[Rfam]
RNA sequence: AGGUGUUUGCUAGGCAAGAUGUCGGCAUAGCUGAUGAGAUUUGAGUAUUUGGCUGUGUCACAUCGAGCCAACUGAACCCUCG
Number, nucleotide and partner (000 for none) at each position: 001a000002g000003g000004u000005g077006u076007u075008u074009g073010c000011u071012a000013g069014g068015c067016a000017a000018g064019a063020u062021g061022u000023c000024g059025g058026c057027a056028u055029a054030g053031c052032u000033g000034a000035u000036g000037a000038g000039a000040u000041u000042u000043g000044a000045g000046u000047a000048u000049u000050u000051g000052g031053c030054u029055g028056u027057g026058u025059c024060a000061c021062a020063u019064c018065g000066a000067g015068c014069c013070a000071a011072c000073u009074g008075a007076a006077c005078c000079c000080u000081c000082g000